[Rfam]
Nucleotides: 120
Base pairs, nucleotide, nucleotide: 001015002014003013005011016041017040018039019038020037021036023034024033025032026031045120046119048093049092050091051090052089053088054082055081057079058078059077062074063073065071100117101116102115103114104113105112
Number, partner (000 for none) and nucleotide at each position: 001015g002014a003013a004000u005011g006000u007000a008000g009000g010000u011005c012000c013003u014002u015001c016041g017040a018039a019038a020037c021036c022000g023034g024033u025032u026031u027000a028000u029000a030000g031026g032025a033024a034023u035000u036021g037020g038019u039018u040017u041016c042000a043000a044000a045120c046119a047000g048093c049092c050091g051090u052089a053088a054082g055081c056000u057079g058078c059077u060000u061000c062074a063073g064000a065071c066000c067000g068000a069000a070000a071065g072000g073063c074062u075000u076000c077059g078058g079057u080000g081055g082054u083000g084000a085000a086000c087000g088053u089052u090051a091050c092049g093048g094000u095000c096000a097000a098000a099000a100117g101116c102115c103114g104113a105112g106000a107000a108000u109000g110000a111000u112105c113104u114103c115102g116101g117100c118000a119046u120045g
The family of this 120-nucleotide sequence from Desulfosporosinus cupriresistens is "Group II catalytic intron D1-D4-2". Pairs were carried over by alignment from the consensus structure. Rfam's curators write: Group II introns are found in rRNA, tRNA and mRNA of organelles in fungi, plants and protists, and also in mRNA in bacteria. The organism belongs to Desulfosporosinus, within Bacteria. Gene Ontology term of the family: Group II intron splicing.